[Rfam]
RNA sequence: GGUUGAGAUGAGGAAUGAUAAUAUUGUUUCCCUAUUGGUUUGAUAGCCGAUAUGAUGGCUAUUAUUUGUAUUAGCUCUAUCUGAUCACCC
Numbered sequence: 001g002g003u004u005g006a007g008a009u010g011a012g013g014a015a016u017g018a019u020a021a022u023a024u025u026g027u028u029u030c031c032c033u034a035u036u037g038g039u040u041u042g043a044u045a046g047c048c049g050a051u052a053u054g055a056u057g058g059c060u061a062u063u064a065u066u067u068g069u070a071u072u073a074g075c076u077c078u079a080u081c082u083g084a085u086c087a088c089c090c
Stems, first nucleotide, its partner, number of pairs: 002089001004087002042062001045060004
Rfam assigns this 90-nucleotide RNA from Carex littledalei to the family "Small nucleolar RNA Z102/R77". Rfam links the family to the GO terms RNA processing and nucleolus. Rfam 15.1 lists 1,346 matches to the family in 224 species. Its Rfam clan is "SNORD44 clan". The literature on the family includes a 2001 paper in J Mol Biol by Barneche et al., "Identification of 66 box C/D snoRNAs in Arabidopsis thaliana: extensive gene duplications generated multiple isoforms predicting new ribosomal RNA 2'-O-methylation sites". Rfam classes the family as a C/D-box small nucleolar RNA.